Shown here is a 70-nucleotide RNA sequence, a member of the family "Cyano-1 RNA".
[Rfam]
RNA sequence: GAAGGUGUGAAGGAGUGGUUCUACUGAAAGAGUGGAAACGAGGAAACACUUGAUUUGGUAAAACCAUGAA
Numbered sequence: 001g002a003a004g005g006u007g008u009g010a011a012g013g014a015g016u017g018g019u020u021c022u023a024c025u026g027a028a029a030g031a032g033u034g035g036a037a038a039c040g041a042g043g044a045a046a047c048a049c050u051u052g053a054u055u056u057g058g059u060a061a062a063a064c065c066a067u068g069a070a
Stems, first nucleotide, its partner, number of pairs: 016066005024058002031051001032049003
Pairs were carried over by alignment from the consensus structure, which is taken from published work.
The family's RNA type in Rfam is small RNA.